[Rfam]
A member of the RNA family "Small nucleolar RNA SNORA26" from Pongo abelii, 130 nucleotides long. Rfam classes the family as an H/ACA-box small nucleolar RNA. It scores 103 bits against the family's covariance model. The family's consensus secondary structure was predicted with RNAalifold. For this family Rfam cites "RNomics: an experimental approach that identifies 201 candidates for novel, small, non-messenger RNAs in mouse" (Huttenhofer et al., EMBO J, 2001). The snoRNA HBI-6 belong to the H/ACA family of snoRNAs, guiding the pseudouridylation of position U4522 if the 28S rRNA. HBI-6 is the human orthologue of mouse MBI-6 snoRNA.
RNA sequence: GUACCCUUUAAUGUAGACGCAGUUUUGUAAGAGGCUAACACAGAAGGGUAAAGUAAGUCUCCAUAAAACCCAAAGAAGAGACAGAAGAGACUGUGAAACUCCUCUUUGGGCCCCAUCUGGAGCCACAGCC
Numbered sequence: 001g002u003a004c005c006c007u008u009u010a011a012u013g014u015a016g017a018c019g020c021a022g023u024u025u026u027g028u029a030a031g032a033g034g035c036u037a038a039c040a041c042a043g044a045a046g047g048g049u050a051a052a053g054u055a056a057g058u059c060u061c062c063a064u065a066a067a068a069c070c071c072a073a074a075g076a077a078g079a080g081a082c083a084g085a086a087g088a089g090a091c092u093g094u095g096a097a098a099c100u101c102c103u104c105u106u107u108g109g110g111c112c113c114c115a116u117c118u119g120g121a122g123c124c125a126c127a128g129c130c
Base pairs, nucleotide, nucleotide: 002050003049004048005047006046007045008044009042013039014038016036018034020031057124059122060121061120062119063118070109071108072107073106074105075104076103087101088100089099092097